[Rfam]
The family of this 52-nucleotide RNA from Canis lupus is "mir-374 microRNA precursor family". Rfam's curators put it in the seed alignment. Pairs were carried over by alignment from the consensus structure, which was predicted with PFOLD.

RNA sequence: UUAUAAUACAACCUGAUAAGUGUUGUAGCACUUACCAGGUUGUAUUGUAAUU
Numbered sequence: 001u002u003a004u005a006a007u008a009c010a011a012c013c014u015g016a017u018a019a020g021u022g023u024u025g026u027a028g029c030a031c032u033u034a035c036c037a038g039g040u041u042g043u044a045u046u047g048u049a050a051u052u
Stems, first nucleotide, its partner, number of pairs: 003048009013038003017034007